[Rfam]
RNA sequence: GAACUAAGGGCGUACGGGGGAUGCCUAGGCUCUCAGAGACGAUGAAGGACGUGGUAAGCUGCGAAAAGUCAUGGGGAGGUGCAAACGACCGUUUGAUCCAUGAAUGUCCGAAUGGGGCAACCCACUAUGUUGAAGACAUAGUACCCGCAAGGGAGGUAACCCGGGGAACUGAAACAUCUAAGUACCCGGAGGAGGAGAAAAUAAUUUAAUGAUUCCGUAAGUAGUGGCGAGCGAACGCGGAAGAGCCCAAACCUGCUAGAUACGUCUAGUGGGGGUUGUAGGACUCGAAUAAUUGUAUAAAUGCUGACUGGAAGUUGUUUGGAAAACAACGCCGUAGAGGGUGAUAGCCCCGUAUGGGAAGGUAGUUAUACAUGUCGAGUAUCCUGAGUAGGGCGGGGCCGGAGAAACCCUGUCUGAAUUUGGCGGCACCAUCCGCUAAGGCUAAAUACUCCUGAGAGACCGAUAGUGAACCAGUACCGUGAGGGAAAGGUGAAAAGAACCGCGAGAAGCGGAGUGAAAAGACCCUGAAACCGUGCGCUUACAAG
Numbered sequence: 001g002a003a004c005u006a007a008g009g010g011c012g013u014a015c016g017g018g019g020g021a022u023g024c025c026u027a028g029g030c031u032c033u034c035a036g037a038g039a040c041g042a043u044g045a046a047g048g049a050c051g052u053g054g055u056a057a058g059c060u061g062c063g064a065a066a067a068g069u070c071a072u073g074g075g076g077a078g079g080u081g082c083a084a085a086c087g088a089c090c091g092u093u094u095g096a097u098c099c100a101u102g103a104a105u106g107u108c109c110g111a112a113u114g115g116g117g118c119a120a121c122c123c124a125c126u127a128u129g130u131u132g133a134a135g136a137c138a139u140a141g142u143a144c145c146c147g148c149a150a151g152g153g154a155g156g157u158a159a160c161c162c163g164g165g166g167a168a169c170u171g172a173a174a175c176a177u178c179u180a181a182g183u184a185c186c187c188g189g190a191g192g193a194g195g196a197g198a199a200a201a202u203a204a205u206u207u208a209a210u211g212a213u214u215c216c217g218u219a220a221g222u223a224g225u226g227g228c229g230a231g232c233g234a235a236c237g238c239g240g241a242a243g244a245g246c247c248c249a250a251a252c253c254u255g256c257u258a259g260a261u262a263c264g265u266c267u268a269g270u271g272g273g274g275g276u277u278g279u280a281g282g283a284c285u286c287g288a289a290u291a292a293u294u295g296u297a298u299a300a301a302u303g304c305u306g307a308c309u310g311g312a313a314g315u316u317g318u319u320u321g322g323a324a325a326a327c328a329a330c331g332c333c334g335u336a337g338a339g340g341g342u343g344a345u346a347g348c349c350c351c352g353u354a355u356g357g358g359a360a361g362g363u364a365g366u367u368a369u370a371c372a373u374g375u376c377g378a379g380u381a382u383c384c385u386g387a388g389u390a391g392g393g394c395g396g397g398g399c400c401g402g403a404g405a406a407a408c409c410c411u412g413u414c415u416g417a418a419u420u421u422g423g424c425g426g427c428a429c430c431a432u433c434c435g436c437u438a439a440g441g442c443u444a445a446a447u448a449c450u451c452c453u454g455a456g457a458g459a460c461c462g463a464u465a466g467u468g469a470a471c472c473a474g475u476a477c478c479g480u481g482a483g484g485g486a487a488a489g490g491u492g493a494a495a496a497g498a499a500c501c502g503c504g505a506g507a508a509g510c511g512g513a514g515u516g517a518a519a520a521g522a523c524c525c526u527g528a529a530a531c532c533g534u535g536c537g538c539u540u541a542c543a544a545g
Base pairs, nucleotide, nucleotide: 008540009539010538011537012536013535014534015533016532017531023525024490025489028461029460030458031457032456033455034454035453036452037450038449040155047109048108049107050063051062052061069103070102071101072100073099074098075097078090079089080088114123115122116121124142125141126140127139128138129137130136144153145152146151160191161189162188163187164186165185171178172177201210202209213446214241215240216239217238218237224232225231244443245442246441247440252273253272254271255270256269257268258267280385281384282383284379285378286377287376288375294372295371296370297369298368299367300366302364303363304362305361308357309356310355314330315329316328317327319326333337339351340350341349391415392414393413394412395411396410397409398408422437423436424435425434426433477484478483500512501511502510503509
Rfam assigns this 545-nucleotide part of an RNA from Lewinellaceae bacterium SD302 to the family "Bacterial large subunit ribosomal RNA". Pairs were carried over by alignment from the consensus structure, which is taken from published work.